RNA: Pseudomonas sRNA P26
Organism: Orbus hercynius
RNA sequence: GAUUUAUUAUGUGCAGCCUGAAAAGGCUGAUGGCUGGAGGUUUUAUACCUCCAGCCU
Numbered sequence: 001g002a003u004u005u006a007u008u009a010u011g012u013g014c015a016g017c018c019u020g021a022a023a024a025g026g027c028u029g030a031u032g033g034c035u036g037g038a039g040g041u042u043u044u045a046u047a048c049c050u051c052c053a054g055c056c057u
Stems, first nucleotide, its partner, number of pairs: 014029005032056010